About this RNA
The family of this 74-nucleotide RNA from Caproiciproducens galactitolivorans is "Fluoride riboswitch aptamer (crcB RNA motif)". Rfam links the family to the GO terms response to fluoride and positive regulation of gene expression.
RNA sequence: AUACUUACUGGGAAUGAAGUUCUCCCAUAGCGAAUGCUAAAAUUGCUUUUAAAGCUGAUGACUUCUGUGGCAUA
Dot-bracket structure: .........[[[[..((((((.]]]]..................(((.....)))....)))))).........